[Rfam]
RNA sequence: UUUUAUAAGGUGCUGAGUUCUUUAAGAAGCGGGGGAACCACUUUUUGGGGUGAAUCUAAUCGAUAUAGUAGGGGCAGCUACUCCUAACCCGACAGCUAACCUCGUAAGCAUAAAGCCACAAAAC
Numbered sequence: 001u002u003u004u005a006u007a008a009g010g011u012g013c014u015g016a017g018u019u020c021u022u023u024a025a026g027a028a029g030c031g032g033g034g035g036a037a038c039c040a041c042u043u044u045u046u047g048g049g050g051u052g053a054a055u056c057u058a059a060u061c062g063a064u065a066u067a068g069u070a071g072g073g074g075c076a077g078c079u080a081c082u083c084c085u086a087a088c089c090c091g092a093c094a095g096c097u098a099a100c101c102u103c104g105u106a107a108g109c110a111u112a113a114a115g116c117c118a119c120a121a122a123a124c
Stems, first nucleotide, its partner, number of pairs: 011110004018028003029105006039047002048090003056068003071084004

Rfam assigns this 124-nucleotide RNA from Desulfitobacterium dichloroeliminans to the family "c-di-AMP riboswitch aptamer (ydaO/yuaA leader)".
NCBI's taxonomy places the organism under Bacteria, Bacillati, Bacillota, Desulfitobacteriaceae, Desulfitobacterium dichloroeliminans.
The base pairs follow the family's consensus structure.